[Rfam]
RNA: ybhL leader
Organism: Rhizobium sp. P32RR-XVIII
RNA sequence: CAGGCAAGCUGGAGCUCCGCAGCGGCGCCUGGGCGGUACAGCCCGACACCGUAUUCCAUCGGAGCUUUU
Numbered sequence: 001c002a003g004g005c006a007a008g009c010u011g012g013a014g015c016u017c018c019g020c021a022g023c024g025g026c027g028c029c030u031g032g033g034c035g036g037u038a039c040a041g042c043c044c045g046a047c048a049c050c051g052u053a054u055u056c057c058a059u060c061g062g063a064g065c066u067u068u069u
Stems, first nucleotide, its partner, number of pairs: 012067008023051003030045005